Rfam assigns this 165-nucleotide RNA sequence to the family "c-di-AMP riboswitch aptamer (ydaO/yuaA leader)".

[Rfam]
RNA sequence: AGUCCGGACCCGCCGCGAGGUGGCCGGAGCCGGGGACCCACACGUUCCACCGGGGUGAAUCGGCCCGGGUGACGGCACACCGCGUGCCGCCCGGACGGGCCGUAGGGCAGCCUUCCGUCCGCCCGAACCCGACAGCUAACCCGGUAGGCGGUCCACGGAAGGAGU
Number, nucleotide and partner (000 for none) at each position: 001a000002g000003u028004c027005c026006g025007g024008a000009c000010c000011c000012g000013c000014c000015g000016c000017g000018a000019g000020g000021u000022g000023g000024c007025c006026g005027g004028a003029g145030c144031c143032g142033g141034g140035g000036a000037c000038c000039c052040a000041c000042a000043c000044g000045u000046u000047c000048c000049a000050c000051c000052g039053g130054g129055g128056u000057g000058a000059a000060u000061c102062g101063g100064c099065c098066c097067g096068g000069g000070u000071g000072a000073c000074g000075g000076c000077a000078c000079a000080c000081c000082g000083c000084g000085u000086g000087c000088c000089g000090c000091c000092c000093g000094g000095a000096c067097g066098g065099g064100c063101c062102g061103u000104a000105g124106g123107g122108c121109a000110g000111c000112c000113u000114u000115c000116c000117g000118u000119c000120c000121g108122c107123c106124c105125g000126a000127a000128c055129c054130c053131g000132a000133c000134a000135g000136c000137u000138a000139a000140c034141c033142c032143g031144g030145u029146a000147g000148g000149c000150g000151g000152u000153c000154c000155a000156c000157g000158g000159a000160a000161g000162g000163a000164g000165u000

The match comes from Rfam's covariance-model search (51 bits).